[Rfam]
RNA sequence: GAGCUGUGAUGAUUAUGGCGAAAACUGUGAGACUUUGGGUCUUCACAUUUGUCUGAUAUAUAAGAAGAAAAUCUGUGCUUCUGAGCUU
Numbered sequence: 001g002a003g004c005u006g007u008g009a010u011g012a013u014u015a016u017g018g019c020g021a022a023a024a025c026u027g028u029g030a031g032a033c034u035u036u037g038g039g040u041c042u043u044c045a046c047a048u049u050u051g052u053c054u055g056a057u058a059u060a061u062a063a064g065a066a067g068a069a070a071a072u073c074u075g076u077g078c079u080u081c082u083g084a085g086c087u088u
Stems, first nucleotide, its partner, number of pairs: 001088004

Rfam assigns this 88-nucleotide RNA from Nicotiana attenuata to the family "small nucleolar RNA snoR114". NCBI's taxonomy places the organism under Eukaryota, Euphyllophyta, Magnoliopsida, Solanaceae, Nicotiana. The literature on the family includes a 2009 paper in Nucleic Acids Res by Chen and Wu, "Mining small RNA sequencing data: a new approach to identify small nucleolar RNAs in Arabidopsis".